[Rfam]
RNA sequence: AUGCGCAAACACGGGAGCUUGGUGGAUUUUCCAGGCUGAGAGGAGGGCACAAGCCCUCGACCGUCGAACCUGAACCGGAUAAUGCCGGCGCAGGGACGUUUCUCACCCGUGCCA
Dot-bracket structure: ......((((((((..(((((..........)))))......(((((......)))))..))))....((((..((((......))))..))))...)))).............
Shown here is a 114-nucleotide sequence from Agrococcus casei, a member of the family "TPP riboswitch aptamer (THI element)".
The family's consensus secondary structure is taken from published work.
It scores 60 bits against the family's covariance model.
The organism belongs to Agrococcus casei, within Bacteria.